[Rfam]
RNA sequence: UGUCCCUAUGAAGAACAGAACUAAAAGUGAAAGUAGUGGACUGAUUCUGCUUGAUGAACAACGUAUCUGAGGGAUA
Numbered sequence: 001u002g003u004c005c006c007u008a009u010g011a012a013g014a015a016c017a018g019a020a021c022u023a024a025a026a027g028u029g030a031a032a033g034u035a036g037u038g039g040a041c042u043g044a045u046u047c048u049g050c051u052u053g054a055u056g057a058a059c060a061a062c063g064u065a066u067c068u069g070a071g072g073g074a075u076a
Stems, first nucleotide, its partner, number of pairs: 001076006

Rfam assigns this 76-nucleotide sequence from Salix brachista to the family "Small nucleolar RNA R21". Its family is annotated with nucleolus and RNA processing in the Gene Ontology. Rfam 15.1 lists 472 matches to the family in 146 species. By type it is a C/D-box small nucleolar RNA. On this family, see Barneche et al., J Mol Biol 2001: "Identification of 66 box C/D snoRNAs in Arabidopsis thaliana: extensive gene duplications generated multiple isoforms predicting new ribosomal RNA 2'-O-methylation sites". The family's consensus secondary structure was predicted with PFOLD. Lineage of the source: Eukaryota > Tracheophyta > Euphyllophyta > rosids > Salix.